This 102-nucleotide RNA sequence from Peptoclostridium litorale belongs to the Rfam family "SAM riboswitch aptamer (S box leader)". The SAM riboswitch is found upstream of a number of genes which code for proteins involved in methionine or cysteine biosynthesis in Gram-positive bacteria. The SAM riboswitch acts at the level of transcription termination control. The predicted structure consists of a complex stem-loop region followed by a single stem loop terminator region. An alternative and mutually exclusive form involves bases in the 3' segment of helix 1 with those in the 5' region of helix 5 to form a structure termed the anti-terminator form. The source organism's lineage runs through Bacteria, Bacillati, Bacillota, Peptostreptococcales and Peptoclostridium litorale.
RNA sequence: UUCUUAUCAAGAGCGGUGGAGGGACUGGCCCUGUGAAACCCGGCAACCUGUAUUAAUAUGCAAGGUGCUAAAUCCAGCGGUUAUUCGACCGGAAGAUGAGAA
Numbered sequence: 001u002u003c004u005u006a007u008c009a010a011g012a013g014c015g016g017u018g019g020a021g022g023g024a025c026u027g028g029c030c031c032u033g034u035g036a037a038a039c040c041c042g043g044c045a046a047c048c049u050g051u052a053u054u055a056a057u058a059u060g061c062a063a064g065g066u067g068c069u070a071a072a073u074c075c076a077g078c079g080g081u082u083a084u085u086c087g088a089c090c091g092g093a094a095g096a097u098g099a100g101a102a
Stems, first nucleotide, its partner, number of pairs: 001102008013041001015040003021031003025077004042069004047065002049062004073094001078091005